Shown here is a 309-nucleotide sequence from Beta vulgaris, a member of the family "Plant signal recognition particle RNA".
Gene Ontology terms of the family: SRP-dependent cotranslational protein targeting to membrane, signal sequence recognition and signal recognition particle, endoplasmic reticulum targeting.
Rfam classes the family as a non-coding RNA gene.
Pairs were carried over by alignment from the consensus structure, which is taken from published work.
Taxonomically the source falls in Beta vulgaris (Eukaryota, Viridiplantae, Embryophyta, Pentapetalae).

[Rfam]
RNA sequence: GUCGAGCUCUGUAGCGUGAGCUUGUGACCCAAGUGGGGACAUUAAGAUGGUGGAACAUGGAUCCAGUAAACUGGAUCGGAUCUUGGGCUUGGCUUUACGUUGGCCUGCCCUGUCCAAGUUGGGAGUUGAUCCAUGGGCCUUAGGCGAACGCUUGAGUCUCUUGGAUCCUAGAGUGGAGGGUAUUGCGUGAGGCUGGUUUCACAGAGCAACGACAACCUCCCACUUCUGUCAGUGGACGGAUAACGGGCUGGUGCCUACCGGAUCCAUUAGUGUCCAGUUGGCUUAGAUCUCCAUUGGACCACCAUUUUU
Numbered sequence: 001g002u003c004g005a006g007c008u009c010u011g012u013a014g015c016g017u018g019a020g021c022u023u024g025u026g027a028c029c030c031a032a033g034u035g036g037g038g039a040c041a042u043u044a045a046g047a048u049g050g051u052g053g054a055a056c057a058u059g060g061a062u063c064c065a066g067u068a069a070a071c072u073g074g075a076u077c078g079g080a081u082c083u084u085g086g087g088c089u090u091g092g093c094u095u096u097a098c099g100u101u102g103g104c105c106u107g108c109c110c111u112g113u114c115c116a117a118g119u120u121g122g123g124a125g126u127u128g129a130u131c132c133a134u135g136g137g138c139c140u141u142a143g144g145c146g147a148a149c150g151c152u153u154g155a156g157u158c159u160c161u162u163g164g165a166u167c168c169u170a171g172a173g174u175g176g177a178g179g180g181u182a183u184u185g186c187g188u189g190a191g192g193c194u195g196g197u198u199u200c201a202c203a204g205a206g207c208a209a210c211g212a213c214a215a216c217c218u219c220c221c222a223c224u225u226c227u228g229u230c231a232g233u234g235g236a237c238g239g240a241u242a243a244c245g246g247g248c249u250g251g252u253g254c255c256u257a258c259c260g261g262a263u264c265c266a267u268u269a270g271u272g273u274c275c276a277g278u279u280g281g282c283u284u285a286g287a288u289c290u291c292c293a294u295u296g297g298a299c300c301a302c303c304a305u306u307u308u309u
Base pairs, nucleotide, nucleotide: 001040002039003038004023005022006021007020008019009018028037029036030035044308045307046306047305048304049303050302051301052300053299056296057295058293059292060291061288062287063286065284066283069279070278071277072276073275074274075273076272078265079264080263081262082261083260085259086258091255092254094253100251101250102249103248104247105246106245107244109239110238112237113236114235115234116233118230120228121227122226123225124224125223126222128167129166130165131164132163133162135160136159137158139156140155141154142153143152144151145150168173175220176219177218178217179216186211187210188209193204194203195202